[Rfam]
RNA sequence: AACUUAUCAAGAGAGAUAUUAGGGAACGGCCCGUUUUAAGUAUCCAGCAACCUGUAAAUACAAGGUGCUAAAUCCGGCAUAAAAGAUGCAAAGAUAAGGA
Numbered sequence: 001a002a003c004u005u006a007u008c009a010a011g012a013g014a015g016a017u018a019u020u021a022g023g024g025a026a027c028g029g030c031c032c033g034u035u036u037u038a039a040g041u042a043u044c045c046a047g048c049a050a051c052c053u054g055u056a057a058a059u060a061c062a063a064g065g066u067g068c069u070a071a072a073u074c075c076g077g078c079a080u081a082a083a084a085g086a087u088g089c090a091a092a093g094a095u096a097a098g099g100a
Base pairs, nucleotide, nucleotide: 003098004097005096006095007094008093013045015044016043017042018041022032023031024030027076028075029074046069047068048067049066051065052064053062054061055060073092078088079087080086
RNA: SAM riboswitch aptamer (S box leader)